[Rfam]
RNA sequence: GGAUCGAAGAGGCAAAUCCCGGGAGACCGGGAGACGCAAAGCCGCGGGUCCCAGGCCGGUACGCUCCAGCAGCCGCCGGCAAGGACGGCCGGGUUGCCGAA
Numbered sequence: 001g002g003a004u005c006g007a008a009g010a011g012g013c014a015a016a017u018c019c020c021g022g023g024a025g026a027c028c029g030g031g032a033g034a035c036g037c038a039a040a041g042c043c044g045c046g047g048g049u050c051c052c053a054g055g056c057c058g059g060u061a062c063g064c065u066c067c068a069g070c071a072g073c074c075g076c077c078g079g080c081a082a083g084g085a086c087g088g089c090c091g092g093g094u095u096g097c098c099g100a101a
Stems, first nucleotide, its partner, number of pairs: 012037002017032006040095004045091003048086003055080006
RNA: c-di-GMP-I riboswitch aptamer